[Rfam]
RNA: Purine riboswitch aptamer
RNA sequence: AACAUACAAAUGAGAUGGACUCAUAUAAGUUCGCUGAUUCAUGGUGCGAACGUCUCUACGGGGCCGCCGAAAGGCUCUGCUAUGGGUGUCUGGACGGGUGGA
Dot-bracket structure: ..................(((((((...((((((...........))))))........((((((.......))))))..)))))))...............